Shown here is a 109-nucleotide sequence from Pseudoduganella lurida, a member of the family "Glycine riboswitch aptamer".
[Rfam]
RNA sequence: GGCCCAAACUCUGGAGAGCGGCACGCGCGACCAUCGCAGCGGUGCCCACCGAAGGGGCGUGCGGAUGCUCAUCCGCUAUCUCUCAGGUACCGAGGACAGAGGGGUAACG
Numbered sequence: 001g002g003c004c005c006a007a008a009c010u011c012u013g014g015a016g017a018g019c020g021g022c023a024c025g026c027g028c029g030a031c032c033a034u035c036g037c038a039g040c041g042g043u044g045c046c047c048a049c050c051g052a053a054g055g056g057g058c059g060u061g062c063g064g065a066u067g068c069u070c071a072u073c074c075g076c077u078a079u080c081u082c083u084c085a086g087g088u089a090c091c092g093a094g095g096a097c098a099g100a101g102g103g104g105u106a107a108c109g
Base pairs, nucleotide, nucleotide: 009101010100011099012098013097020046021045022044023043048088049087050086051084052083055082056081057080061076062075063074064073065072066071
Lineage of the source: Bacteria > Pseudomonadati > Betaproteobacteria > Burkholderiales > Pseudoduganella.